The family of this 228-nucleotide RNA from Anabarilius grahami is "Small nucleolar RNA SNORA53". Its family is annotated with RNA processing and nucleolus in the Gene Ontology.
RNA sequence: AACACGCUCCUUAGAUCCACCUCUGGGGAGUUUCUCCACUCCGGUUCUGUUCUCUCUCUCUGGGAGCAGCAGGAUCGGGCCGGAGGCUCCCAGCAGCUUCACUGCUGUACAGUCAGAGGUGCUUGAGUCAUUGGCGUGUGAGAUCAGUCUACCUGCUUACCCAGCAUCCUCUCUGCCCUGAACCUUCUCAGGAAAACAGCAGGGCAGAACCGCUGGAGAGCAGACAAA
Number, nucleotide and partner (000 for none) at each position: 001a000002a139003c138004a137005c136006g135007c134008u133009c000010c127011u126012u125013a124014g123015a000016u000017c000018c121019a120020c119021c118022u117023c116024u115025g114026g091027g090028g089029a088030g087031u000032u000033u000034c000035u084036c083037c082038a000039c000040u079041c078042c077043g076044g075045u000046u000047c072048u071049g070050u069051u000052c000053u065054c064055u063056c062057u000058c000059u000060c000061u000062g056063g055064g054065a053066g000067c000068a000069g050070c049071a048072g047073g000074a000075u044076c043077g042078g041079g040080c000081c000082g037083g036084a035085g000086g000087c030088u029089c028090c027091c026092a000093g108094c107095a106096g105097c104098u000099u000100c000101a000102c000103u000104g097105c096106u095107g094108u093109a000110c000111a000112g000113u000114c025115a024116g023117a022118g021119g020120u019121g018122c000123u014124u013125g012126a011127g010128u000129c000130a000131u000132u000133g008134g007135c006136g005137u004138g003139u002140g000141a000142g000143a000144u000145c000146a000147g000148u000149c000150u000151a000152c000153c223154u222155g221156c220157u219158u000159a000160c216161c000162c000163a214164g213165c212166a000167u000168c000169c000170u000171c000172u000173c207174u206175g205176c204177c203178c202179u201180g200181a000182a000183c000184c199185u198186u000187c000188u195189c000190a000191g000192g000193a000194a000195a188196a000197c000198a185199g184200c180201a179202g178203g177204g176205c175206a174207g173208a000209a000210c000211c000212g165213c164214u163215g000216g160217a000218g000219a157220g156221c155222a154223g153224a000225c000226a000227a000228a000
Rfam describes the family as follows. The snoRNA ACA53 belongs to the H/ACA family of pseudouridylation guide snoRNAs.